[Rfam]
RNA sequence: GCUGCUCGUAAUAAUCACACACCUCUCCGUGGUGAGCAGCAGGCAACGAUUUAAGAAUGUAUGGUUCGAUGAUCGGCGAAGAUGUGCGA
Numbered sequence: 001g002c003u004g005c006u007c008g009u010a011a012u013a014a015u016c017a018c019a020c021a022c023c024u025c026u027c028c029g030u031g032g033u034g035a036g037c038a039g040c041a042g043g044c045a046a047c048g049a050u051u052u053a054a055g056a057a058u059g060u061a062u063g064g065u066u067c068g069a070u071g072a073u074c075g076g077c078g079a080a081g082a083u084g085u086g087c088g089a
Base pairs, nucleotide, nucleotide: 001040002039003038004037005036006035007034021033022032023031047075048074049073050072051071
Source information
A member of the RNA family "HDV ribozyme from F. prausnitzii", 89 nucleotides long. On this family, see Webb et al., Science 2009: "Widespread occurrence of self-cleaving ribozymes".